[Rfam]
RNA: Bacterial RNase P class A
Organism: Albibacterium bauzanense
RNA sequence: AAAGCAAGCUGAGCUGUCGCCGUAACAUCGUGUUAAGGAGGAAAGUCCGGGCAACAUAGAGCAUCUCGCUUCCUAACAGGAAGGCAGUUGUAAAAGACUGACGGAAAGUGCCACAGAAAAUAUACCGCCUGCUUACAUGUAAGCAGGUAAGGGUGAAAACGAGAGGUAAGAGCUCCCGGUUGUGUGUGGUGACACGCAUGGCGGUAAACCCCGAGAGUUGAAAGGUCAAAUAGGUUUCAAAUCGGGAGUUGCUCGCUCCCUUUGCCAUCGGCAAAUUUGAAACGGGUAGACCGUUAGACCUUGCUAGCAAUGGCAAGGCUAGAUAAAUGACAGAUAAAGAAUCAAAUCUAAAACAGAAUCCGGCUUAUAGGCUUGCUUUUUAU
Numbered sequence: 001a002a003a004g005c006a007a008g009c010u011g012a013g014c015u016g017u018c019g020c021c022g023u024a025a026c027a028u029c030g031u032g033u034u035a036a037g038g039a040g041g042a043a044a045g046u047c048c049g050g051g052c053a054a055c056a057u058a059g060a061g062c063a064u065c066u067c068g069c070u071u072c073c074u075a076a077c078a079g080g081a082a083g084g085c086a087g088u089u090g091u092a093a094a095a096g097a098c099u100g101a102c103g104g105a106a107a108g109u110g111c112c113a114c115a116g117a118a119a120a121u122a123u124a125c126c127g128c129c130u131g132c133u134u135a136c137a138u139g140u141a142a143g144c145a146g147g148u149a150a151g152g153g154u155g156a157a158a159a160c161g162a163g164a165g166g167u168a169a170g171a172g173c174u175c176c177c178g179g180u181u182g183u184g185u186g187u188g189g190u191g192a193c194a195c196g197c198a199u200g201g202c203g204g205u206a207a208a209c210c211c212c213g214a215g216a217g218u219u220g221a222a223a224g225g226u227c228a229a230a231u232a233g234g235u236u237u238c239a240a241a242u243c244g245g246g247a248g249u250u251g252c253u254c255g256c257u258c259c260c261u262u263u264g265c266c267a268u269c270g271g272c273a274a275a276u277u278u279g280a281a282a283c284g285g286g287u288a289g290a291c292c293g294u295u296a297g298a299c300c301u302u303g304c305u306a307g308c309a310a311u312g313g314c315a316a317g318g319c320u321a322g323a324u325a326a327a328u329g330a331c332a333g334a335u336a337a338a339g340a341a342u343c344a345a346a347u348c349u350a351a352a353a354c355a356g357a358a359u360c361c362g363g364c365u366u367a368u369a370g371g372c373u374u375g376c377u378u379u380u381u382a383u
Stems, first nucleotide, its partner, number of pairs: 001379010011368001012335001014333005020038002023035005043366003047363005052220004061268001064216005069083005084102001085100004103211002108209002110205003125152002127148009160178002163175003181200008224292004234283006261275005299318008